[Rfam]
RNA sequence: GCAAUCGGACAAGUGAGGUGGCUGUCCGCUAGGACGCCCGCAAGGACUGCACGCUGAGUCUCUCGCGCGCCCCCAUGGGCGUUCGGCGAGUCCCAGACAGGCACCCGACCCCGAGCUGCCGACCUUGUCCAGUCGGCCCUGAUCGCCUGAUCAGGAAGUGGCUCGGGGUCCGCCAUGC
Numbered sequence: 001g002c003a004a005u006c007g008g009a010c011a012a013g014u015g016a017g018g019u020g021g022c023u024g025u026c027c028g029c030u031a032g033g034a035c036g037c038c039c040g041c042a043a044g045g046a047c048u049g050c051a052c053g054c055u056g057a058g059u060c061u062c063u064c065g066c067g068c069g070c071c072c073c074c075a076u077g078g079g080c081g082u083u084c085g086g087c088g089a090g091u092c093c094c095a096g097a098c099a100g101g102c103a104c105c106c107g108a109c110c111c112c113g114a115g116c117u118g119c120c121g122a123c124c125u126u127g128u129c130c131a132g133u134c135g136g137c138c139c140u141g142a143u144c145g146c147c148u149g150a151u152c153a154g155g156a157a158g159u160g161g162c163u164c165g166g167g168g169u170c171c172g173c174c175a176u177g178c
Stems, first nucleotide, its partner, number of pairs: 027088004032083002035081006106172002108169010118137006
RNA: Actinobacteria sRNA Ms_IGR-5